A member of the RNA family "Small nucleolar RNA SNORD70" from Esox lucius, 91 nucleotides long. The literature on the family includes a 2001 paper in EMBO J by Huttenhofer et al., "RNomics: an experimental approach that identifies 201 candidates for novel, small, non-messenger RNAs in mouse". Pairs were carried over by alignment from the consensus structure. From the family's description: snoRNA HBII-234 belongs to the C/D family of snoRNAs. It is the human orthologue of the mouse MBII-234 and is predicted to guide 2'O-ribose methylation of the small 18S rRNA on position A512. It is hosted, together with HBII-95, by the core C/D box snoRNA protein encoding gene NOP5/NOP58. By type it is a C/D-box small nucleolar RNA. The organism belongs to Esox, within Eukaryota. Gene Ontology terms of the family: RNA processing and nucleolus.
[Rfam]
RNA sequence: CCAGCUGUGUUGUUGAUGAUGUAUCUCUGUGUCUGAAUCAACCAUGUGGUCAUUCAGCAGUAUUCGUCACUACCACUGAGACCACAGCUGA
Numbered sequence: 001c002c003a004g005c006u007g008u009g010u011u012g013u014u015g016a017u018g019a020u021g022u023a024u025c026u027c028u029g030u031g032u033c034u035g036a037a038u039c040a041a042c043c044a045u046g047u048g049g050u051c052a053u054u055c056a057g058c059a060g061u062a063u064u065c066g067u068c069a070c071u072a073c074c075a076c077u078g079a080g081a082c083c084a085c086a087g088c089u090g091a
Stems, first nucleotide, its partner, number of pairs: 002090008012082003